[Rfam]
RNA sequence: UAAAUCCUUCAGGGCAGGGUGAAAUUCCCGACCGGCGGUACAGCCCGCGAGCCAUAAAAUGGCUGACCUGGUGAAAUUCCAGGGCCGACAGUAUAGUCUGGAUGGGAGAAGGAAUUA
Numbered sequence: 001u002a003a004a005u006c007c008u009u010c011a012g013g014g015c016a017g018g019g020u021g022a023a024a025u026u027c028c029c030g031a032c033c034g035g036c037g038g039u040a041c042a043g044c045c046c047g048c049g050a051g052c053c054a055u056a057a058a059a060u061g062g063c064u065g066a067c068c069u070g071g072u073g074a075a076a077u078u079c080c081a082g083g084g085c086c087g088a089c090a091g092u093a094u095a096g097u098c099u100g101g102a103u104g105g106g107a108g109a110a111g112g113a114a115u116u117a
Stems, first nucleotide, its partner, number of pairs: 003115001005113006017029003031097002033087002035048004043085002051063003067083005089100003

Record summary:
A member of the RNA family "FMN riboswitch aptamer (RFN element)" from Caminicella sporogenes, 117 nucleotides long. The base pairs follow the family's consensus structure, which is taken from published work. From the family's description: The RFN element is a highly conserved domain that is found frequently in the 5'-untranslated regions of prokaryotic mRNAs that encode for flavin mononucleotide (FMN) biosynthesis and transport proteins.